[Rfam]
RNA sequence: UGACACUCCCAUUACCUAUGGACACGGUGUCACAAGCUCUCAACAGGGGUUCUGCCCUCGAGCUUGCCGGAAGUUUUUCCGUGUCCAG
Numbered sequence: 001u002g003a004c005a006c007u008c009c010c011a012u013u014a015c016c017u018a019u020g021g022a023c024a025c026g027g028u029g030u031c032a033c034a035a036g037c038u039c040u041c042a043a044c045a046g047g048g049g050u051u052c053u054g055c056c057c058u059c060g061a062g063c064u065u066g067c068c069g070g071a072a073g074u075u076u077u078u079c080c081g082u083g084u085c086c087a088g
Base pairs, nucleotide, nucleotide: 001032002031003030004029005028006027007026009021010020011019012018033066034065035064036063037062038061039060045058046057047056048055